[Rfam]
RNA sequence: GUUCCCUUGAUGGCAGGGUCACGCCAUCAUCCUCCCUGUUGGACUCGCCCCCGCAAUUCGCGGGGGCUUUUUU
Numbered sequence: 001g002u003u004c005c006c007u008u009g010a011u012g013g014c015a016g017g018g019u020c021a022c023g024c025c026a027u028c029a030u031c032c033u034c035c036c037u038g039u040u041g042g043a044c045u046c047g048c049c050c051c052c053g054c055a056a057u058u059c060g061c062g063g064g065g066g067c068u069u070u071u072u073u
Stems, first nucleotide, its partner, number of pairs: 008029007047067008
Dot-bracket structure: .......(((((((........))))))).................((((((((.....))))))))......

Rfam assigns this 73-nucleotide RNA from Marivivens sp. JLT3646 to the family "Singlet oxygen resistance RNA X". On this family, see Peng et al., RNA Biol 2016: "Regulation of a polyamine transporter by the conserved 3' UTR-derived sRNA SorX confers resistance to singlet oxygen and organic hydroperoxides in Rhodobacter sphaeroides". The organism belongs to Marivivens, within Bacteria. A search with the family's covariance model found it, with a score of 65 bits. Rfam links the family to the GO term response to photooxidative stress. From the family's description: SorX (RSs2461)like SorY is a singlet oxygen induced sRNA that counteracts oxidative stress by targeting mRNA for a transporter in Rhodobacter. It also has an impact on resistance against organic hydroperoxides. It targets SD sequence of potA mRNA via an aSD sequence. The aSD sequence and some neighbouring nucleotides are identical to the one of SorY (targets takP mRNA). Rfam 15.1 lists 528 matches to the family in 356 species. Pairs were carried over by alignment from the consensus structure.